Source information:
A member of the RNA family "Streptococcus sRNA SSRC41" from Streptococcus ictaluri, 107 nucleotides long. The source organism's lineage runs through Bacteria, Bacillati, Bacillota, Lactobacillales and Streptococcus ictaluri. It is annotated as a small RNA.

[Rfam]
RNA sequence: AAGCUCCUAGGAGCUUUUUUAUUUUCCCAUUACUUGAAUUCUUGUUUAUUCCUAAAAAAUAGGCUAUAAUAAAGCAUAGCAUUUAAUUUUAGAAAGAAGGUGUAAGU
Numbered sequence: 001a002a003g004c005u006c007c008u009a010g011g012a013g014c015u016u017u018u019u020u021a022u023u024u025u026c027c028c029a030u031u032a033c034u035u036g037a038a039u040u041c042u043u044g045u046u047u048a049u050u051c052c053u054a055a056a057a058a059a060u061a062g063g064c065u066a067u068a069a070u071a072a073a074g075c076a077u078a079g080c081a082u083u084u085a086a087u088u089u090u091a092g093a094a095a096g097a098a099g100g101u102g103u104a105a106g107u
Stems, first nucleotide, its partner, number of pairs: 003075003012065005018059003029046001031044002079103006